[Rfam]
RNA sequence: GGAGCGGACUGGACAGCGGCACAGCACAGGCUGUGAGGAAAGUCCGGGCUUCAUAGGGCAGGAUACCUGCUAACGGCAGGCCGAGGCGACUCGAGGGAAAGUGCAACAGAAAGAAACCGCCAAAAAUUUUUUUGGCAAGGAUGGAAAGGCGAGGUAAGAGCUCACCGGAGUACAGGCGACUGUACUGCCAUGUAAACCCUAUCCGAAGCAACACCAGCAGGAACAAUGCGGCGGCCCGCCGGGUUCCGAAAGGUGGCGCGAGUUGUAUGGCAACGUACAGCCAAGAAAGAUCGCUGUUCUCGACAGAACCCGGCUUACAGGUUCGGUUCCGGC
Numbered sequence: 001g002g003a004g005c006g007g008a009c010u011g012g013a014c015a016g017c018g019g020c021a022c023a024g025c026a027c028a029g030g031c032u033g034u035g036a037g038g039a040a041a042g043u044c045c046g047g048g049c050u051u052c053a054u055a056g057g058g059c060a061g062g063a064u065a066c067c068u069g070c071u072a073a074c075g076g077c078a079g080g081c082c083g084a085g086g087c088g089a090c091u092c093g094a095g096g097g098a099a100a101g102u103g104c105a106a107c108a109g110a111a112a113g114a115a116a117c118c119g120c121c122a123a124a125a126a127u128u129u130u131u132u133u134g135g136c137a138a139g140g141a142u143g144g145a146a147a148g149g150c151g152a153g154g155u156a157a158g159a160g161c162u163c164a165c166c167g168g169a170g171u172a173c174a175g176g177c178g179a180c181u182g183u184a185c186u187g188c189c190a191u192g193u194a195a196a197c198c199c200u201a202u203c204c205g206a207a208g209c210a211a212c213a214c215c216a217g218c219a220g221g222a223a224c225a226a227u228g229c230g231g232c233g234g235c236c237c238g239c240c241g242g243g244u245u246c247c248g249a250a251a252g253g254u255g256g257c258g259c260g261a262g263u264u265g266u267a268u269g270g271c272a273a274c275g276u277a278c279a280g281c282c283a284a285g286a287a288a289g290a291u292c293g294c295u296g297u298u299c300u301c302g303a304c305a306g307a308a309c310c311c312g313g314c315u316u317a318c319a320g321g322u323u324c325g326g327u328u329c330c331g332g333c
Base pairs, nucleotide, nucleotide: 001329002328003327005325006324007323008322009321010320011318012298013297014296015295016294017293018292020035021034022033023032024031025030040316041315042314044313045312046311047310048309049208050207051206052205056237057236058235059234061204062203063202064201065200066080067079068078069077070076081095082093083092084091085090096199097198101197102196103193104192105191117140118139119136120135121134122133123132124131125130148166149165151163152162153161167188168186170185171184172183173182174181175180212255213254214253215252221246222245223244224243229241230240231239232238262281263280264279265278266277267276268275269274